[Rfam]
Nucleotides: 102
Stems, first nucleotide, its partner, number of pairs: 018088008029049001031047005058078007
Number, partner (000 for none) and nucleotide at each position: 001000u002000a003000a004000a005000a006000a007000u008000g009000a010000a011000c012000u013000g014000a015000a016000u017000a018088c019087c020086c021085u022084c023083g024082u025081a026000u027000a028000a029049u030000a031047a032046u033045g034044g035043g036000a037000a038000u039000a040000u041000g042000g043035c044034c045033c046032a047031u048000a049029a050000g051000u052000u053000u054000c055000u056000a057000c058078c059077c060076g061075a062074u063073a064072a065000c066000c067000g068000u069000a070000a071000a072064u073063u074062a075061u076060u077059g078058g079000a080000c081025u082024a083023u084022g085021a086020g087019g088018g089000a090000a091000a092000g093000u094000c095000g096000a097000u098000a099000a100000g101000c102000c

Rfam assigns this 102-nucleotide RNA sequence from Cytobacillus solani to the family "Purine riboswitch aptamer". NCBI's taxonomy places the organism under Bacteria, Bacillati, Bacilli, Caryophanales, Cytobacillus. It scores 91 bits against the family's covariance model.